Rfam assigns this 107-nucleotide RNA from Clostridiaceae bacterium AF18-31LB to the family "TPP riboswitch aptamer (THI element)". A search with the family's covariance model found it, with a score of 58 bits.
RNA sequence: GUUCAGAAAUAGGGAGCUCAAAUAGAUGGGCUGAGAGUAGACUUUAAAGUCUUGACCUGGAACCUGAUUUGGAUAAUGCCAACGUAGGGAAAUACAUGUCGCGAAGA
Numbered sequence: 001g002u003u004c005a006g007a008a009a010u011a012g013g014g015a016g017c018u019c020a021a022a023u024a025g026a027u028g029g030g031c032u033g034a035g036a037g038u039a040g041a042c043u044u045u046a047a048a049g050u051c052u053u054g055a056c057c058u059g060g061a062a063c064c065u066g067a068u069u070u071g072g073a074u075a076a077u078g079c080c081a082a083c084g085u086a087g088g089g090a091a092a093u094a095c096a097u098g099u100c101g102c103g104a105a106g107a
Base pairs, nucleotide, nucleotide: 006095008093010091012057013056015053016031017030018029019028020027039052040051041050042049063088064087065086066085069082070081071080072079
Lineage of the source: Bacteria > Bacillota > Clostridia > Eubacteriales > Clostridiaceae. Vitamin B(1) in its active form thiamin pyrophosphate (TPP) is an essential coenzyme that is synthesised by coupling of pyrimidine and thiazole moieties in bacteria. Pairs were carried over by alignment from the consensus structure, which is taken from published work. Its family is annotated with thiamine pyrophosphate binding in the Gene Ontology.